This 169-nucleotide sequence from Streptomyces sp. NWU49 belongs to the Rfam family "c-di-AMP riboswitch aptamer (ydaO/yuaA leader)". A search with the family's covariance model found it, with a score of 65 bits.

RNA sequence: UCGCGUCAUGCGCCACAGGCAGGAGCGGGGGACCCAAGGUAGGCGCCGGAUCCGGAAGUUGACGCCGGAUCCGGCUCGGGGUGAAGCCGUGUCCCGUGAGGGGCGCGGCCGGGCAACUCAACCGGCCCGAACCCGACAGCUCACCUCGUAGGCGUCGGUGAGGGGAUCA
Numbered sequence: 001u002c003g004c005g006u007c008a009u010g011c012g013c014c015a016c017a018g019g020c021a022g023g024a025g026c027g028g029g030g031g032a033c034c035c036a037a038g039g040u041a042g043g044c045g046c047c048g049g050a051u052c053c054g055g056a057a058g059u060u061g062a063c064g065c066c067g068g069a070u071c072c073g074g075c076u077c078g079g080g081g082u083g084a085a086g087c088c089g090u091g092u093c094c095c096g097u098g099a100g101g102g103g104c105g106c107g108g109c110c111g112g113g114c115a116a117c118u119c120a121a122c123c124g125g126c127c128c129g130a131a132c133c134c135g136a137c138a139g140c141u142c143a144c145c146u147c148g149u150a151g152g153c154g155u156c157g158g159u160g161a162g163g164g165g166a167u168c169a
Stems, first nucleotide, its partner, number of pairs: 002154003009024001011022001025149006035078001079134003087108007111128004